[Rfam]
Nucleotides: 130
Base pairs, nucleotide, nucleotide: 003059004058006056007055008054021043022042023041024040025039026038027037070123072122073121074120084110085109086108087107088106089105
Number, partner (000 for none) and nucleotide at each position: 001000c002000a003059c004058u005000u006056c007055a008054u009000u010000c011000u012000a013000c014000g015000u016000g017000a018000g019000a020000a021043u022042g023041g024040g025039c026038a027037c028000u029000g030000u031000u032000g033000g034000u035000c036000a037027g038026u039025g040024u041023u042022c043021a044000g045000a046000a047000u048000u049000a050000g051000u052000c053000g054008a055007u056006g057000u058004g059003g060000c061000u062000a063000a064000a065000u066000u067000g068000a069000a070123a071000c072122a073121g074120g075000u076000c077000a078000u079000g080000u081000u082000u083000c084110c085109a086108u087107c088106a089105c090000a091000g092000u093000a094000a095000g096000u097000a098000u099000a100000u101000u102000g103000c104000a105089g106088u107087g108086g109085u110084g111000a112000c113000a114000a115000u116000g117000a118000g119000a120074c121073c122072u123070u124000a125000a126000c127000a128000u129000u130000u
Description:
The record is a 130-nucleotide RNA from Nannospalax galili, which matches "Small nucleolar RNA SNORA1" in Rfam. The family's RNA type in Rfam is H/ACA-box small nucleolar RNA. Pairs were carried over by alignment from the consensus structure, which was predicted with PFOLD. ACA1 is a member of the H/ACA class of snoRNA that guide the sites of modification of uridines to pseudouridines. The match comes from Rfam's covariance-model search (116 bits).